The family of this 101-nucleotide RNA sequence from Sporolactobacillus laevolacticus is "Purine riboswitch aptamer". It scores 69 bits against the family's covariance model.

[Rfam]
RNA sequence: AAACUUCAUCCUUUCUGUUUUCGUAUAUCCUUAAUAAUACGGUUUGAGGGUCUCUACCGAGGAACCGGAAAUUCCCGGCUACGAAAAAAUAUGCAUGCAUA
Numbered sequence: 001a002a003a004c005u006u007c008a009u010c011c012u013u014u015c016u017g018u019u020u021u022c023g024u025a026u027a028u029c030c031u032u033a034a035u036a037a038u039a040c041g042g043u044u045u046g047a048g049g050g051u052c053u054c055u056a057c058c059g060a061g062g063a064a065c066c067g068g069a070a071a072u073u074c075c076c077g078g079c080u081a082c083g084a085a086a087a088a089a090u091a092u093g094c095a096u097g098c099a100u101a
Stems, first nucleotide, its partner, number of pairs: 018087008029049006058077002061075004
Dot-bracket structure: .................((((((((...((((((.........))))))........((.((((.......))))))..))))))))..............